[Rfam]
RNA sequence: CUGGUCUUAUACACAACGGUAGUCCAGUGGUAAUUUCAGUAUAAGAAGGAAAUCACCAUAUUG
Numbered sequence: 001c002u003g004g005u006c007u008u009a010u011a012c013a014c015a016a017c018g019g020u021a022g023u024c025c026a027g028u029g030g031u032a033a034u035u036u037c038a039g040u041a042u043a044a045g046a047a048g049g050a051a052a053u054c055a056c057c058a059u060a061u062u063g
Base pairs, nucleotide, nucleotide: 007044008043009042010041011040012039028058029057031055033053034052035051036050037049
Source information: Coronavirus 3' UTR pseudoknot: a 63-nucleotide RNA from Alphacoronavirus ricketti. Gene Ontology term of the family: viral genome replication. Pairs were carried over by alignment from the consensus structure, which is taken from published work. Rfam's curators write: Coronaviruses are plus-strand RNA viruses with ~30kb genomes. The 3' UTR region of coronavirus genomes contains a conserved ~55nt pseudoknot structure which has been shown to be necessary for viral genome replication. NCBI's taxonomy places the organism under Viruses, Pisuviricota, Coronaviridae, Myotacovirus, Myotis ricketti alphacoronavirus Sax-2011.